This 54-nucleotide RNA sequence from Sinocyclocheilus rhinocerous belongs to the Rfam family "UnaL2 LINE 3' element".
From the family's description: The eel long interspersed element (LINE) UnaL2 and its partner short interspersed element (SINE) share a conserved 3' tail containing a stem-loop that is critical for their retrotransposition. Presumably, the first step of retrotransposition is the recognition of their 3' tails by UnaL2-encoded reverse transcriptase.
For this family Rfam cites "Solution structure of an RNA stem-loop derived from the 3' conserved region of eel LINE UnaL2" (Baba et al., RNA, 2004).
The family's RNA type in Rfam is cis-regulatory element.

[Rfam]
RNA sequence: AUUGUCCUAAUUUGUAAGUCGCUUUGGAUAAAAGCAUCUGCUAAAUGAAAAUGG
Numbered sequence: 001a002u003u004g005u006c007c008u009a010a011u012u013u014g015u016a017a018g019u020c021g022c023u024u025u026g027g028a029u030a031a032a033a034g035c036a037u038c039u040g041c042u043a044a045a046u047g048a049a050a051a052u053g054g
Base pairs, nucleotide, nucleotide: 013043014041015040016039021035022034023033024032025031